[Rfam]
RNA sequence: GAAUGCCUGUCUGGUAAGGUCUAACCAACCGCCAGUAGCGAGUCUUGGGUGACUGCCAGUAAUGGUAGUUGCUAAGCGUAGACAGCGAGAAAAUAGAGAGUGUGAUUGAGCCUCGAAAUUUUGAUAUCUAGAAGGCUGACGUUUUAAUUCCAGCGGAAAGCAACACAAACCAAAUCGUCAUGGUAAUCUGUGUUUUCCACUUUCCCUGAAGCAUCAGAAGC
Numbered sequence: 001g002a003a004u005g006c007c008u009g010u011c012u013g014g015u016a017a018g019g020u021c022u023a024a025c026c027a028a029c030c031g032c033c034a035g036u037a038g039c040g041a042g043u044c045u046u047g048g049g050u051g052a053c054u055g056c057c058a059g060u061a062a063u064g065g066u067a068g069u070u071g072c073u074a075a076g077c078g079u080a081g082a083c084a085g086c087g088a089g090a091a092a093a094u095a096g097a098g099a100g101u102g103u104g105a106u107u108g109a110g111c112c113u114c115g116a117a118a119u120u121u122u123g124a125u126a127u128c129u130a131g132a133a134g135g136c137u138g139a140c141g142u143u144u145u146a147a148u149u150c151c152a153g154c155g156g157a158a159a160g161c162a163a164c165a166c167a168a169a170c171c172a173a174a175u176c177g178u179c180a181u182g183g184u185a186a187u188c189u190g191u192g193u194u195u196u197c198c199a200c201u202u203u204c205c206c207u208g209a210a211g212c213a214u215c216a217g218a219a220g221c
Stems, first nucleotide, its partner, number of pairs: 011035004018030003022186001024184002038086002042083004046078002048073011110212002113209003131204003134198001135161003140155004167196003171192002174189001

This 221-nucleotide RNA from Ruminococcus sp. 5_1_39BFAA belongs to the Rfam family "Group II catalytic intron D1-D4-6". Rfam's curators put it in the seed alignment. On this family, see Bonen and Vogel, Trends Genet 2001: "The ins and outs of group II introns". The family has 174 seed sequences and 1,617 matches in Rfam 15.1. Pairs were carried over by alignment from the consensus structure. Rfam describes the family as follows. Group II introns are found in rRNA, tRNA and mRNA of organelles in fungi, plants and protists, and also in mRNA in bacteria. The organism belongs to Ruminococcus, within Bacteria.